[Rfam]
RNA sequence: GCAUGACUGAUUUCCUCUGGUGUUCAGAGUGGACUGGAGCUUUCUAGCACCAUUUUAAAUCAGUUAUGU
Numbered sequence: 001g002c003a004u005g006a007c008u009g010a011u012u013u014c015c016u017c018u019g020g021u022g023u024u025c026a027g028a029g030u031g032g033a034c035u036g037g038a039g040c041u042u043u044c045u046a047g048c049a050c051c052a053u054u055u056u057a058a059a060u061c062a063g064u065u066a067u068g069u
Base pairs, nucleotide, nucleotide: 001069002068003067004066005064007063008062009061010060011059012058013057018052019051020050021049022048026045027044028043
RNA: mir-29 microRNA precursor family
Organism: Salmo trutta